[Rfam]
RNA sequence: UGGAAAUGAGGAAAAAGUGCAAUUCUUGAGUUCUCCAUGAAGACUUCUAAUCCAACUCUGAUCCAAACCCUUUA
Numbered sequence: 001u002g003g004a005a006a007u008g009a010g011g012a013a014a015a016a017g018u019g020c021a022a023u024u025c026u027u028g029a030g031u032u033c034u035c036c037a038u039g040a041a042g043a044c045u046u047c048u049a050a051u052c053c054a055a056c057u058c059u060g061a062u063c064c065a066a067a068c069c070c071u072u073u074a
Base pairs, nucleotide, nucleotide: 001065002064003063004062